Small nucleolar RNA SNORA1: a 133-nucleotide RNA from Saimiri boliviensis. NCBI's taxonomy places the organism under Eukaryota, Gnathostomata, Eutheria, Simiiformes, Saimiri boliviensis. ACA1 is a member of the H/ACA class of snoRNA that guide the sites of modification of uridines to pseudouridines. The family has 29 seed sequences and 1,282 matches in Rfam 15.1.
RNA sequence: AGCCUCAUUCUAGAUGAGAAUGGGCAAUGUUGAUAAUAGUAUCCAAAAAUAGUUAAUGCGGCUUAACUGAGACAGGUUAUGCUUCCAGCACAGUAUGCAUAUUACAGUGGUGACAGUGAGACCUGUAACAUUU
Numbered sequence: 001a002g003c004c005u006c007a008u009u010c011u012a013g014a015u016g017a018g019a020a021u022g023g024g025c026a027a028u029g030u031u032g033a034u035a036a037u038a039g040u041a042u043c044c045a046a047a048a049a050u051a052g053u054u055a056a057u058g059c060g061g062c063u064u065a066a067c068u069g070a071g072a073c074a075g076g077u078u079a080u081g082c083u084u085c086c087a088g089c090a091c092a093g094u095a096u097g098c099a100u101a102u103u104a105c106a107g108u109g110g111u112g113a114c115a116g117u118g119a120g121a122c123c124u125g126u127a128a129c130a131u132u133u
Base pairs, nucleotide, nucleotide: 002062003061004060006058007057008056021045022044023043024042026040072126073125074124075123076122086112087111089109090108091107